[Rfam]
RNA sequence: CAGCGGGUGGAAGUCCCGUCCGGGUAAGCGCCGGAGCGCCCGGUAGCAGGCCCCAGCCGUGCGGGGAGACCCGCCCGGCCGAGCGGGGUGUCACAAGCCUCUUCGGAGGGAGCAAGAACGCGGGCCGUAGCAUCA
Numbered sequence: 001c002a003g004c005g006g007g008u009g010g011a012a013g014u015c016c017c018g019u020c021c022g023g024g025u026a027a028g029c030g031c032c033g034g035a036g037c038g039c040c041c042g043g044u045a046g047c048a049g050g051c052c053c054c055a056g057c058c059g060u061g062c063g064g065g066g067a068g069a070c071c072c073g074c075c076c077g078g079c080c081g082a083g084c085g086g087g088g089u090g091u092c093a094c095a096a097g098c099c100u101c102u103u104c105g106g107a108g109g110g111a112g113c114a115a116g117a118a119c120g121c122g123g124g125c126c127g128u129a130g131c132a133u134c135a
Stems, first nucleotide, its partner, number of pairs: 020043005050089005056079004064071002098109004112128002

Background: The record is a 135-nucleotide RNA sequence from Nocardiopsis sp. CNR-923, which matches "Group II catalytic intron D1-D4-4" in Rfam. For this family Rfam cites "Group II introns: structure and catalytic versatility of large natural ribozymes" (Lehmann and Schmidt, Crit Rev Biochem Mol Biol, 2003). The base pairs follow the family's consensus structure. Gene Ontology term of the family: Group II intron splicing. NCBI's taxonomy places the organism under Bacteria, Actinomycetota, Streptosporangiales, Nocardiopsidaceae, Nocardiopsis. Rfam's curators write: Group II introns are found in rRNA, tRNA and mRNA of organelles in fungi, plants and protists, and also in mRNA in bacteria.